RNA sequence: AACCAUGUGAUAAGCACAAAGCGAACUAUUCUUUCGCCUUUUACUAAAGAAUACCGUGUGCUUGUCACUAUAAGUGGUAUACGCUUAUUUUUGGAAGAGUUCUCCAAAGGAGAGCU
Numbered sequence: 001a002a003c004c005a006u007g008u009g010a011u012a013a014g015c016a017c018a019a020a021g022c023g024a025a026c027u028a029u030u031c032u033u034u035c036g037c038c039u040u041u042u043a044c045u046a047a048a049g050a051a052u053a054c055c056g057u058g059u060g061c062u063u064g065u066c067a068c069u070a071u072a073a074g075u076g077g078u079a080u081a082c083g084c085u086u087a088u089u090u091u092u093g094g095a096a097g098a099g100u101u102c103u104c105c106a107a108a109g110g111a112g113a114g115c116u
Base pairs, nucleotide, nucleotide: 003077004076005075006074008067009066010065011064012063013062014061015060016059017058018057027053028052029051030050031049032048033047034046098116099115100114101113102112103111